[Rfam]
RNA: eL15-Euryarchaeota ribosomal protein leader
RNA sequence: CGGGAUACGUCCCGUUGGAAUGUGGCUGUAAUAACGUCAGCUGAACCGUGAA
Numbered sequence: 001c002g003g004g005a006u007a008c009g010u011c012c013c014g015u016u017g018g019a020a021u022g023u024g025g026c027u028g029u030a031a032u033a034a035c036g037u038c039a040g041c042u043g044a045a046c047c048g049u050g051a052a
Stems, first nucleotide, its partner, number of pairs: 001014005016048003024042005